This 64-nucleotide RNA sequence from Edaphobacter acidisoli belongs to the Rfam family "nadA riboswitch".
A search with the family's covariance model found it, with a score of 47 bits.
RNA sequence: GGUUGCAACACCCCCGUGGACGGGUAAUGGCCAUCCAGGCCGGCACAGCGAGUCCACUGCAACC
Numbered sequence: 001g002g003u004u005g006c007a008a009c010a011c012c013c014c015c016g017u018g019g020a021c022g023g024g025u026a027a028u029g030g031c032c033a034u035c036c037a038g039g040c041c042g043g044c045a046c047a048g049c050g051a052g053u054c055c056a057c058u059g060c061a062a063c064c
Base pairs, nucleotide, nucleotide: 001064002063003062004061005060006059007058013050014048016057017056018055019054020053021052022049024046025045028042029041030040031039